[Rfam]
RNA sequence: GCUAAGAAAAAGCAAACUUAUUGAAAUAUGAGGACGCAAAGCCACGGGCCUAAUGCAUUACUGCAACGACAUGACGGGUUGCCGAA
Numbered sequence: 001g002c003u004a005a006g007a008a009a010a011a012g013c014a015a016a017c018u019u020a021u022u023g024a025a026a027u028a029u030g031a032g033g034a035c036g037c038a039a040a041g042c043c044a045c046g047g048g049c050c051u052a053a054u055g056c057a058u059u060a061c062u063g064c065a066a067c068g069a070c071a072u073g074a075c076g077g078g079u080u081g082c083c084g085a086a
Stems, first nucleotide, its partner, number of pairs: 012037002017032005040080004045076002048070001050068001055064003
Shown here is an 86-nucleotide sequence from Desulfoscipio geothermicus, a member of the family "c-di-GMP-I riboswitch aptamer".
Its family is annotated with cyclic-di-GMP binding in the Gene Ontology.
A reference for the family is Sudarsan et al. (2008), "Riboswitches in Eubacteria Sense the Second Messenger Cyclic Di-GMP", Science.
It scores 59 bits against the family's covariance model.